[Rfam]
RNA sequence: GAGUACCGACAGGGGAGCGCUUCGGCGCUGAGAGUGCAUUACGCAGACCCUCGAACCUGCUCCGGACAAUGCCGGCGAAGGGAGUCGAGUUUCUCUCCGU
Numbered sequence: 001g002a003g004u005a006c007c008g009a010c011a012g013g014g015g016a017g018c019g020c021u022u023c024g025g026c027g028c029u030g031a032g033a034g035u036g037c038a039u040u041a042c043g044c045a046g047a048c049c050c051u052c053g054a055a056c057c058u059g060c061u062c063c064g065g066a067c068a069a070u071g072c073c074g075g076c077g078a079a080g081g082g083a084g085u086c087g088a089g090u091u092u093c094u095c096u097c098c099g100u
Stems, first nucleotide, its partner, number of pairs: 007087004011051004017028004035045003056081003062075004

Rfam assigns this 100-nucleotide sequence from Arcanobacterium sp. S3PF19 to the family "TPP riboswitch aptamer (THI element)".